[Rfam]
RNA sequence: GGUUGCAAGUUUGAAGCCAAACCAGAAAUGCUUAUGGCAUGGCCCUGUUUGAUUCUAAGGAAUCUACAAAUUCUGCU
Numbered sequence: 001g002g003u004u005g006c007a008a009g010u011u012u013g014a015a016g017c018c019a020a021a022c023c024a025g026a027a028a029u030g031c032u033u034a035u036g037g038c039a040u041g042g043c044c045c046u047g048u049u050u051g052a053u054u055c056u057a058a059g060g061a062a063u064c065u066a067c068a069a070a071u072u073c074u075g076c077u
Base pairs, nucleotide, nucleotide: 013045016043017042018041021077023075024074025073026072027071028040029039030038049066051064052063053062054061055060
RNA: Mammalian CPEB3 ribozyme
Organism: Crocodylus porosus